Small nucleolar RNA SNORA9: a 134-nucleotide RNA from Parambassis ranga. The family is grouped with related families in Rfam's "SNORA9 clan". Rfam links the family to the GO terms nucleolus and RNA processing. Pairs were carried over by alignment from the consensus structure, which was predicted with PFOLD. Rfam's curators write: ACA9 is a member of the H/ACA class of snoRNA that guide the sites of modification of uridines to pseudouridines.
RNA sequence: CGGCAGACCUUUCCAACAAGACUGAGCCUGCGGUGGUUCUGUCCGUUCCUGUAGUGUCUGCUAGAAAAUGUGAGGCUGUUUGAGGCCAUGCUGUGAUUCUUCAUAGCAGGGUUAUAGGUACGCUUCAGACAAAC
Numbered sequence: 001c002g003g004c005a006g007a008c009c010u011u012u013c014c015a016a017c018a019a020g021a022c023u024g025a026g027c028c029u030g031c032g033g034u035g036g037u038u039c040u041g042u043c044c045g046u047u048c049c050u051g052u053a054g055u056g057u058c059u060g061c062u063a064g065a066a067a068a069u070g071u072g073a074g075g076c077u078g079u080u081u082g083a084g085g086c087c088a089u090g091c092u093g094u095g096a097u098u099c100u101u102c103a104u105a106g107c108a109g110g111g112u113u114a115u116a117g118g119u120a121c122g123c124u125u126c127a128g129a130c131a132a133a134c
Stems, first nucleotide, its partner, number of pairs: 003061006020044001024039005071127005086111002089108003093104003